A member of the RNA family "Aggregatibacter sRNA 22" from Serratia sp. DD3, 96 nucleotides long. On this family, see Oogai et al., DNA Res 2017: "Small RNA repertoires and their intraspecies variation in Aggregatibacter actinomycetemcomitans". The family has 7 seed sequences and 101 matches in Rfam 15.1. The family's RNA type in Rfam is small RNA.
[Rfam]
RNA sequence: CACUUGGGACAAAUCUGCCGGAAGCAGAUUUGAACGCUGCUUGCAGCGGCCCCGAAGGGGCGAGGCCCACGGAUGGGCCGAGUAGCACACUGUGCG
Numbered sequence: 001c002a003c004u005u006g007g008g009a010c011a012a013a014u015c016u017g018c019c020g021g022a023a024g025c026a027g028a029u030u031u032g033a034a035c036g037c038u039g040c041u042u043g044c045a046g047c048g049g050c051c052c053c054g055a056a057g058g059g060g061c062g063a064g065g066c067c068c069a070c071g072g073a074u075g076g077g078c079c080g081a082g083u084a085g086c087a088c089a090c091u092g093u094g095c096g
Stems, first nucleotide, its partner, number of pairs: 010032008035048005049061005064079006082093004